[Rfam]
RNA: FMN riboswitch aptamer (RFN element)
RNA sequence: GUGAUUCUUCGGGGCAGGGUGCAAUUCCCUACCGGCGGUAAAAGUCCGCGACCCUCCAGUAUCUUAAAGCGCGAAGUGCCGAAAGAUACAAAAGGCUGAUAUGGUGCAAUUCCAUGACCGACGGUAACAGUCCGGAUGAGAGAAGAAACUU
Numbered sequence: 001g002u003g004a005u006u007c008u009u010c011g012g013g014g015c016a017g018g019g020u021g022c023a024a025u026u027c028c029c030u031a032c033c034g035g036c037g038g039u040a041a042a043a044g045u046c047c048g049c050g051a052c053c054c055u056c057c058a059g060u061a062u063c064u065u066a067a068a069g070c071g072c073g074a075a076g077u078g079c080c081g082a083a084a085g086a087u088a089c090a091a092a093a094g095g096c097u098g099a100u101a102u103g104g105u106g107c108a109a110u111u112c113c114a115u116g117a118c119c120g121a122c123g124g125u126a127a128c129a130g131u132c133c134g135g136a137u138g139a140g141a142g143a144a145g146a147a148a149c150u151u
Base pairs, nucleotide, nucleotide: 003149005147006146007145008144009143010142017029018028019027031131032130033120034119035049036048037047038046044118045117053095054094100116101115102114103113104112122134123133124132